About this RNA
This 91-nucleotide sequence from Octopus sinensis belongs to the Rfam family "Vault RNA". The organism belongs to Octopus, within Eukaryota. On this family, see Stadler et al., Mol Biol Evol 2009: "Evolution of Vault RNAs". By type it is a non-coding RNA gene.
[Rfam]
RNA sequence: AUGUGAGGCUUAGCCGUGUGGUUACUUCGUUAAACUGAACUCUCGUUGAAUUCUUCCUACUCUGAAACCACUGGCGCUGUCUCACACAUUC
Numbered sequence: 001a002u003g004u005g006a007g008g009c010u011u012a013g014c015c016g017u018g019u020g021g022u023u024a025c026u027u028c029g030u031u032a033a034a035c036u037g038a039a040c041u042c043u044c045g046u047u048g049a050a051u052u053c054u055u056c057c058u059a060c061u062c063u064g065a066a067a068c069c070a071c072u073g074g075c076g077c078u079g080u081c082u083c084a085c086a087c088a089u090u091c
Stems, first nucleotide, its partner, number of pairs: 002086006013075004018071004026066004